[Rfam]
RNA: tRNA
RNA sequence: GCCGGGGUGGCGGAACUGGUAGACGCGCCGGACUCAAAAUCCGGUGGUGGCGACACCGUGUCGGUUCGACUCCGACCCUCGGUA
Numbered sequence: 001g002c003c004g005g006g007g008u009g010g011c012g013g014a015a016c017u018g019g020u021a022g023a024c025g026c027g028c029c030g031g032a033c034u035c036a037a038a039a040u041c042c043g044g045u046g047g048u049g050g051c052g053a054c055a056c057c058g059u060g061u062c063g064g065u066u067c068g069a070c071u072c073c074g075a076c077c078c079u080c081g082g083u084a
Stems, first nucleotide, its partner, number of pairs: 001083007010026003028044005060076005